The family of this 73-nucleotide RNA sequence is "skipping-rope RNA".
RNA sequence: AGAACCAGAGGACGGAACAGGCAGCCGUCACCCAUUGUCAGGAGAUGUGGGGAGUGUCAUCCCACCUGAUUCU
Numbered sequence: 001a002g003a004a005c006c007a008g009a010g011g012a013c014g015g016a017a018c019a020g021g022c023a024g025c026c027g028u029c030a031c032c033c034a035u036u037g038u039c040a041g042g043a044g045a046u047g048u049g050g051g052g053a054g055u056g057u058c059a060u061c062c063c064a065c066c067u068g069a070u071u072c073u
Stems, first nucleotide, its partner, number of pairs: 001073004006068003011029005020058004031042001047065005